This 70-nucleotide RNA from Pararge aegeria belongs to the Rfam family "mir-11 microRNA precursor family". The organism belongs to Pararge aegeria, within Eukaryota. The match comes from Rfam's covariance-model search (62 bits). On this family, see Chen et al., Insect Mol Biol 2010: "Next-generation small RNA sequencing for microRNAs profiling in the honey bee Apis mellifera".
RNA sequence: CCUUGUGGCUAGUACUCGAGACUGUGAUCUGUGUAACCGUCACAUCACAGUCAGAGUUCUAGCUACACGC
Numbered sequence: 001c002c003u004u005g006u007g008g009c010u011a012g013u014a015c016u017c018g019a020g021a022c023u024g025u026g027a028u029c030u031g032u033g034u035a036a037c038c039g040u041c042a043c044a045u046c047a048c049a050g051u052c053a054g055a056g057u058u059c060u061a062g063c064u065a066c067a068c069g070c
Stems, first nucleotide, its partner, number of pairs: 004067003009062004014057004022050006031043003